RNA: c-di-AMP riboswitch aptamer (ydaO/yuaA leader)
Organism: Ammoniphilus sp. CFH 90114
RNA sequence: ACAGCAUAACGGCCUAAUCCCAGUACACUGGGAGCGGAGGAACCAAGUAAGUGGGGUUAAUUUUACAAUUUGUAGAAGGGAUGAGUUAGCUCUUUCGCCAUCCUACCCGUCAGCUAACUUCGUCGGCUAAAGCGAAGGAGGUC
Numbered sequence: 001a002c003a004g005c006a007u008a009a010c011g012g013c014c015u016a017a018u019c020c021c022a023g024u025a026c027a028c029u030g031g032g033a034g035c036g037g038a039g040g041a042a043c044c045a046a047g048u049a050a051g052u053g054g055g056g057u058u059a060a061u062u063u064u065a066c067a068a069u070u071u072g073u074a075g076a077a078g079g080g081a082u083g084a085g086u087u088a089g090c091u092c093u094u095u096c097g098c099c100a101u102c103c104u105a106c107c108c109g110u111c112a113g114c115u116a117a118c119u120u121c122g123u124c125g126g127c128u129a130a131a132g133c134g135a136a137g138g139a140g141g142u143c
Stems, first nucleotide, its partner, number of pairs: 011128004018033005034123006044053002054108003062076004079103004